The family of this 119-nucleotide sequence from Clostridium aciditolerans is "FMN riboswitch aptamer (RFN element)". Lineage of the source: Bacteria > Bacillota > Eubacteriales > Clostridiaceae > Clostridium. The family's consensus secondary structure is taken from published work.
RNA sequence: UUAAACUUUCAGGGCAGGGUGUAAUUCCCGACCGGCGGUAAAGUCCGCGAGCUGAGUAAUCAGCAUGAACUGGUGAAACUCCAGUACCGACAGUAAAGUCUGGAUGAAAGAAAGAUUAU
Numbered sequence: 001u002u003a004a005a006c007u008u009u010c011a012g013g014g015c016a017g018g019g020u021g022u023a024a025u026u027c028c029c030g031a032c033c034g035g036c037g038g039u040a041a042a043g044u045c046c047g048c049g050a051g052c053u054g055a056g057u058a059a060u061c062a063g064c065a066u067g068a069a070c071u072g073g074u075g076a077a078a079c080u081c082c083a084g085u086a087c088c089g090a091c092a093g094u095a096a097a098g099u100c101u102g103g104a105u106g107a108a109a110g111a112a113a114g115a116u117u118a119u
Base pairs, nucleotide, nucleotide: 003117004116006114007113008112009111010110017029018028019027031099032098033089034088035048036047037046038045043087044086053063069085070084071083072082073081091102092101093100